[Rfam]
RNA sequence: CUCUUAUUGAGAGAAGGCGGAGGGACUGGCCCUAUGAUGCCCGGCAACCCUCGCAUCGGGAUAAACGAUGCGAAACGGUGCUAAAUCCUACACAUAAUCGUGCUGUACUGAUUUAUGUGAGAGAUAAGAG
Numbered sequence: 001c002u003c004u005u006a007u008u009g010a011g012a013g014a015a016g017g018c019g020g021a022g023g024g025a026c027u028g029g030c031c032c033u034a035u036g037a038u039g040c041c042c043g044g045c046a047a048c049c050c051u052c053g054c055a056u057c058g059g060g061a062u063a064a065a066c067g068a069u070g071c072g073a074a075a076c077g078g079u080g081c082u083a084a085a086u087c088c089u090a091c092a093c094a095u096a097a098u099c100g101u102g103c104u105g106u107a108c109u110g111a112u113u114u115a116u117g118u119g120a121g122a123g124a125u126a127a128g129a130g
Base pairs, nucleotide, nucleotide: 001130002129003128004127005126006125007124008123013042016041017040018039022032023031024030028088029087043082044081045080046079048078049077051073052072053071054070055069056068057067058066086122091119092118093117094116095115096114

This 130-nucleotide RNA sequence from Brevibacillus laterosporus belongs to the Rfam family "SAM riboswitch aptamer (S box leader)". The match comes from Rfam's covariance-model search (76 bits). The organism belongs to Brevibacillus laterosporus, within Bacteria.